A member of the RNA family "U5 spliceosomal RNA" from Exidia glandulosa, 117 nucleotides long. Rfam's curators write: U5 RNA is a component of both types of known spliceosome. The match comes from Rfam's covariance-model search (62 bits). Taxonomically the source falls in Exidia glandulosa (Eukaryota, Opisthokonta, Basidiomycota, Agaricomycotina). By type it is a spliceosomal small nuclear RNA.
Nucleotides: 117
Stems, first nucleotide, its partner, number of pairs: 003081004009069007017061003029055002032052005101116006
Number, partner (000 for none) and nucleotide at each position: 001000a002000g003081c004080a005079g006078c007000u008000g009069a010068c011067g012066g013065u014064c015063c016000a017061g018060c019059a020000u021000c022000u023000u024000c025000g026000c027000a028000u029055c030054a031000c032052g033051u034050u035049c036048u037000c038000g039000c040000c041000u042000u043000u044000u045000a046000c047000u048036a049035g050034a051033g052032c053000a054030u055029g056000c057000c058000g059019u060018g061017u062000c063015g064014g065013g066012c067011c068010g069009u070000c071000g072000c073000u074000u075000g076000c077000a078006g079005c080004u081003g082000c083000u084000u085000a086000u087000c088000a089000a090000a091000u092000u093000u094000c095000u096000c097000c098000c099000u100000u101116c102115a103114c104113a105112g106111g107000u108000c109000u110000c111106c112105c113104u114103g115102u116101g117000c